[Rfam]
This 299-nucleotide RNA from Nocardia gamkensis belongs to the Rfam family "Mycobacterium smegmatis small RNA 1". It scores 167 bits against the family's covariance model. A reference for the family is Hnilicova et al. (2014), "Ms1, a novel sRNA interacting with the RNA polymerase core in mycobacteria", Nucleic Acids Res. Taxonomically the source falls in Nocardia (Bacteria, Bacillati, Actinomycetota, Mycobacteriales). From the family's description: Mycobacterium smegmatis small RNA 1 is highly expressed during stationary phase of growth. Ms1 RNA directly interacts with RNA polymerase (RNAP), but in a different way than 6S, which is present in other bacteria. Ms1 does not require the presence of the main sigma factor for RNAP interaction.
RNA sequence: ACGGAAGGGCGGAAGGCCAAGGCAGUACCGGAAGAGAAGGCACUGUCUCCCGACCAUCCUUCCCAGCACGGACACCAGGCACCCACGCGGAGCGCGCCGCGACAAGGGCAGAAGCGUUGUGGGCCUGCGAAAUACGGAUAGUCGACGGCGAAGGCCUCGCACAGGUUGCGGGGAUGAACCGGCCGAUGUCCGGAUUGUCGCCGAGGCCGCAGAACACAACCCACCUAGCACGCUUGGUAACCGGGUAGUCCGUGCUAGCGGGCGGUGAGGUCGACAGACAACGCCGCCCGCUUUGAUGU
Dot-bracket structure: ..((.((((.((..((...((..(((.((.........)).)))..)).))..)).)))).)).((((((((..((.((...(((.(((..((..(((........)))......(((((((((((((((..(.((((...(((.(((((....(((((((.....))))))).))..)))..)))..)))).)...))))..)))))......)))))).......)).))).)))...))))....)))))))).((((((((((..(((....)))..))))))))))........
Numbered sequence: 001a002c003g004g005a006a007g008g009g010c011g012g013a014a015g016g017c018c019a020a021g022g023c024a025g026u027a028c029c030g031g032a033a034g035a036g037a038a039g040g041c042a043c044u045g046u047c048u049c050c051c052g053a054c055c056a057u058c059c060u061u062c063c064c065a066g067c068a069c070g071g072a073c074a075c076c077a078g079g080c081a082c083c084c085a086c087g088c089g090g091a092g093c094g095c096g097c098c099g100c101g102a103c104a105a106g107g108g109c110a111g112a113a114g115c116g117u118u119g120u121g122g123g124c125c126u127g128c129g130a131a132a133u134a135c136g137g138a139u140a141g142u143c144g145a146c147g148g149c150g151a152a153g154g155c156c157u158c159g160c161a162c163a164g165g166u167u168g169c170g171g172g173g174a175u176g177a178a179c180c181g182g183c184c185g186a187u188g189u190c191c192g193g194a195u196u197g198u199c200g201c202c203g204a205g206g207c208c209g210c211a212g213a214a215c216a217c218a219a220c221c222c223a224c225c226u227a228g229c230a231c232g233c234u235u236g237g238u239a240a241c242c243g244g245g246u247a248g249u250c251c252g253u254g255c256u257a258g259c260g261g262g263c264g265g266u267g268a269g270g271u272c273g274a275c276a277g278a279c280a281a282c283g284c285c286g287c288c289c290g291c292u293u294u295g296a297u298g299u
Stems, first nucleotide, its partner, number of pairs: 003063002006060004011055002015051002020048002024044003028040002065256008075244002078242002083237003087233003092229002096109003116220006122208005127201004133194001135192004142186003146181003149176002155173007258291010270279003